[Rfam]
The record is a 35-nucleotide RNA sequence from Ursus maritimus, which matches "Iron response element I" in Rfam.

RNA sequence: CUUUCUCUUGCUUCAACCAUGUUUGGAUGGAAUAG
Numbered sequence: 001c002u003u004u005c006u007c008u009u010g011c012u013u014c015a016a017c018c019a020u021g022u023u024u025g026g027a028u029g030g031a032a033u034a035g
Base pairs, nucleotide, nucleotide: 001035002034004032006031007030008029010028012027013026014025015024016023017021